[Rfam]
RNA sequence: GUGACAGAAGAGAGUGGGCACACAUGGAUCUUUUCUUGCAUAUAACGUAGACCAUGCUUGAAGCUAUGCGUGCCCUCCCUCUAUCUGUCAC
Dot-bracket structure: ((((((((.(((.(.((((((.(((........................................))).)))))).).)))..))))))))

Background:
Rfam assigns this 91-nucleotide sequence from Cannabis sativa to the family "mir-156 microRNA precursor family". It scores 78 bits against the family's covariance model. This family represents the plant microRNA (miRNA) precursor mir-156. Rfam 15.1 lists 1,401 matches to the family in 221 species. Taxonomically the source falls in Cannabis (Eukaryota, Streptophyta, Spermatophyta, Rosales).